[Rfam]
RNA sequence: UGCGCAGAUGAUGAUAAGCUAGACAGGGACUCAGCACUCUGAAAGGAGAAUGUUGAUUUGUCUAAUGGGAAAACUUUCUGAUGCAUU
Numbered sequence: 001u002g003c004g005c006a007g008a009u010g011a012u013g014a015u016a017a018g019c020u021a022g023a024c025a026g027g028g029a030c031u032c033a034g035c036a037c038u039c040u041g042a043a044a045g046g047a048g049a050a051u052g053u054u055g056a057u058u059u060g061u062c063u064a065a066u067g068g069g070a071a072a073a074c075u076u077u078c079u080g081a082u083g084c085a086u087u
Stems, first nucleotide, its partner, number of pairs: 002086001004084003